[Rfam]
mir-219 microRNA precursor family: an 84-nucleotide RNA from Austrofundulus limnaeus. Its family is annotated with RISC complex and miRNA-mediated post-transcriptional gene silencing in the Gene Ontology. On this family, see Lim et al., Science 2003: "Vertebrate microRNA genes".
RNA sequence: UUUGCGACUGAUUGUCCAAACGCAAUUCUUGAGUAAAAAUCCGACUCAAACCCCCAAGAAUUGUGUCUGGACAUCUGUUGCUGC
Numbered sequence: 001u002u003u004g005c006g007a008c009u010g011a012u013u014g015u016c017c018a019a020a021c022g023c024a025a026u027u028c029u030u031g032a033g034u035a036a037a038a039a040u041c042c043g044a045c046u047c048a049a050a051c052c053c054c055c056a057a058g059a060a061u062u063g064u065g066u067c068u069g070g071a072c073a074u075c076u077g078u079u080g081c082u083g084c
Base pairs, nucleotide, nucleotide: 002083004081005080006079007078010075011074012073014072015071016070017069018068021065022064023063024062025061026060027059028058029057030056031055